Notes: This 82-nucleotide sequence from Phyllotreta striolata belongs to the Rfam family "tRNA". The family's consensus secondary structure is taken from published work.
RNA sequence: GGCUCGUUAGCUCAGUUGGUAAGAGUCGCCACGCUGUUUCCUAACAUUGUGGAGGUCGUGAGUUCGAAUCUCACACGAGCCC
Numbered sequence: 001g002g003c004u005c006g007u008u009a010g011c012u013c014a015g016u017u018g019g020u021a022a023g024a025g026u027c028g029c030c031a032c033g034c035u036g037u038u039u040c041c042u043a044a045c046a047u048u049g050u051g052g053a054g055g056u057c058g059u060g061a062g063u064u065c066g067a068a069u070c071u072c073a074c075a076c077g078a079g080c081c082c
Base pairs, nucleotide, nucleotide: 001081002080003079004078005077006076007075010027011025012024013023029052030051031050032049033048058074059073060072061071062070